[Rfam]
RNA sequence: GGAGCAAUCGGUGAUGAAUUCCAUGAAAAAUUGUUAUCCUUGCACUUUGAUUGCUAGUGAAGAUAAAAAUGGGGUUUUCGAUUCUGAGAUUCUC
Numbered sequence: 001g002g003a004g005c006a007a008u009c010g011g012u013g014a015u016g017a018a019u020u021c022c023a024u025g026a027a028a029a030a031u032u033g034u035u036a037u038c039c040u041u042g043c044a045c046u047u048u049g050a051u052u053g054c055u056a057g058u059g060a061a062g063a064u065a066a067a068a069a070u071g072g073g074g075u076u077u078u079c080g081a082u083u084c085u086g087a088g089a090u091u092c093u094c
Stems, first nucleotide, its partner, number of pairs: 002094003006091004
Dot-bracket structure: .(((.((((..............................................................................)))))))